This 45-nucleotide sequence from Bacillus mesophilum belongs to the Rfam family "PreQ1 (pre queuosine) riboswitch aptamer". It scores 56 bits against the family's covariance model. On this family, see Balaratnam et al., Nat Commun 2021: "A chemical probe based on the PreQ(1) metabolite enables transcriptome-wide mapping of binding sites". About the family: This family is a bacterial riboswitch that binds to the metabolite preQ1, an intermediate in the biosynthesis of the modified nucleoside queuosine from GTP. One example of this riboswitch is located in the leader of the Bacillus subtilis ykvJKLM (queCDEF) operon which encodes four genes necessary for queuosine production. PreQ1 binding to the riboswitch aptamer is thought to induce premature transcription termination within the leader to down-regulate expression of these genes. The pairing is the family consensus, mapped onto this sequence. Its family is annotated with queuosine biosynthetic process in the Gene Ontology.

[Rfam]
RNA sequence: UCUGACGUGGUUCGAGAACCUCCCACGAUAAAAAACUAAGGAGAG
Numbered sequence: 001u002c003u004g005a006c007g008u009g010g011u012u013c014g015a016g017a018a019c020c021u022c023c024c025a026c027g028a029u030a031a032a033a034a035a036c037u038a039a040g041g042a043g044a045g
Stems, first nucleotide, its partner, number of pairs: 006027005016037001
Dot-bracket structure: .....(((((.....[......))))).........]........